[Rfam]
RNA sequence: GGGGACGUUACGGAUUCGACAGGGGUAGUUCGAGCUUAAGUUGCGAGUCGAGGGGAUCGGCCUCGUUAAAACGUCACAGCCAAUAACUGGCGAAGAUAAUUACGCUUUAGCUGCCUAAUUAAAUAGCGCAGCUGUUCGCCCCUCCAUCGCCCAUGUGGUAGGGUAGCGGACUCAAACUUAGUGGGCUACGCCGGAGGCCACCGUCUGAGGUCGAAGGAAGAGAACAAUCAGACUAGCUACUUGGACGCCUGUCGAUAGGCAGAAAAGUUAGUGAAAUGCUAAUAUAUCGACUACACUCGUAGAAGCUUAAGUGCCGAUAUCUUUGGACGUGGGUUCGACUCCCACCGUCUCCACCA
Numbered sequence: 001g002g003g004g005a006c007g008u009u010a011c012g013g014a015u016u017c018g019a020c021a022g023g024g025g026u027a028g029u030u031c032g033a034g035c036u037u038a039a040g041u042u043g044c045g046a047g048u049c050g051a052g053g054g055g056a057u058c059g060g061c062c063u064c065g066u067u068a069a070a071a072c073g074u075c076a077c078a079g080c081c082a083a084u085a086a087c088u089g090g091c092g093a094a095g096a097u098a099a100u101u102a103c104g105c106u107u108u109a110g111c112u113g114c115c116u117a118a119u120u121a122a123a124u125a126g127c128g129c130a131g132c133u134g135u136u137c138g139c140c141c142c143u144c145c146a147u148c149g150c151c152c153a154u155g156u157g158g159u160a161g162g163g164u165a166g167c168g169g170a171c172u173c174a175a176a177c178u179u180a181g182u183g184g185g186c187u188a189c190g191c192c193g194g195a196g197g198c199c200a201c202c203g204u205c206u207g208a209g210g211u212c213g214a215a216g217g218a219a220g221a222g223a224a225c226a227a228u229c230a231g232a233c234u235a236g237c238u239a240c241u242u243g244g245a246c247g248c249c250u251g252u253c254g255a256u257a258g259g260c261a262g263a264a265a266a267g268u269u270a271g272u273g274a275a276a277u278g279c280u281a282a283u284a285u286a287u288c289g290a291c292u293a294c295a296c297u298c299g300u301a302g303a304a305g306c307u308u309a310a311g312u313g314c315c316g317a318u319a320u321c322u323u324u325g326g327a328c329g330u331g332g333g334u335u336c337g338a339c340u341c342c343c344a345c346c347g348u349c350u351c352c353a354c355c356a
Stems, first nucleotide, its partner, number of pairs: 001352007020325008029316001032314001034312009044299005049065005055075003109133006134171006140163004144158004149186006191217002196212004203234001206231001236272004240267003247260003251291004255285003329345005
This 356-nucleotide RNA from Bacillus salinus belongs to the Rfam family "transfer-messenger RNA". Bacterial tmRNA, also known as 10Sa RNA or SsrA, is named for its dual tRNA and mRNA-like properties. The base pairs follow the family's consensus structure, which is taken from published work. Rfam classes the family as a non-coding RNA gene. NCBI's taxonomy places the organism under Bacteria, Bacillati, Bacillota, Bacillaceae, Bacillus. A search with the family's covariance model found it, with a score of 213 bits. A reference for the family is Williams and Bartel (1996), "Phylogenetic analysis of tmRNA secondary structure", RNA.